RNA sequence: GCGUGCGUUCGGGAGACGUUCAGCAGUGGUGCUGAGGCUUCGGGUCGGAGCCAGUCUCCCGAACUGUGC
Numbered sequence: 001g002c003g004u005g006c007g008u009u010c011g012g013g014a015g016a017c018g019u020u021c022a023g024c025a026g027u028g029g030u031g032c033u034g035a036g037g038c039u040u041c042g043g044g045u046c047g048g049a050g051c052c053a054g055u056c057u058c059c060c061g062a063a064c065u066g067u068g069c
Stems, first nucleotide, its partner, number of pairs: 007064011020035005037051004
A member of the RNA family "RT-13 RNA", 69 nucleotides long. Pairs were carried over by alignment from the consensus structure, which is taken from published work. It is annotated as a small RNA. It is one of the family's seed sequences.